[Rfam]
RNA sequence: UUGCUCUUCAAAAGCACUGGUUUUAGGAUCCAUUAUUAUCCAAGCCAGCCGUUAAAACUGAGCUAUAAAAAAAAUCUUGUUUUUGGGUGAGGUGUAUUCAAGUCAGAAUGGAUCUCAAUAACACGAUGACAAUU
Numbered sequence: 001u002u003g004c005u006c007u008u009c010a011a012a013a014g015c016a017c018u019g020g021u022u023u024u025a026g027g028a029u030c031c032a033u034u035a036u037u038a039u040c041c042a043a044g045c046c047a048g049c050c051g052u053u054a055a056a057a058c059u060g061a062g063c064u065a066u067a068a069a070a071a072a073a074a075u076c077u078u079g080u081u082u083u084u085g086g087g088u089g090a091g092g093u094g095u096a097u098u099c100a101a102g103u104c105a106g107a108a109u110g111g112a113u114c115u116c117a118a119u120a121a122c123a124c125g126a127u128g129a130c131a132a133u134u
Stems, first nucleotide, its partner, number of pairs: 003063004014052002017048005026041004083126003086122001088117006095110003098106001
The family of this 134-nucleotide sequence from Caenorhabditis briggsae is "Caenorhabditis snoRNA ceN82". On this family, see Jia et al., BMC Mol Biol 2007: "Systematic identification of non-coding RNA 2,2,7-trimethylguanosine cap structures in Caenorhabditis elegans".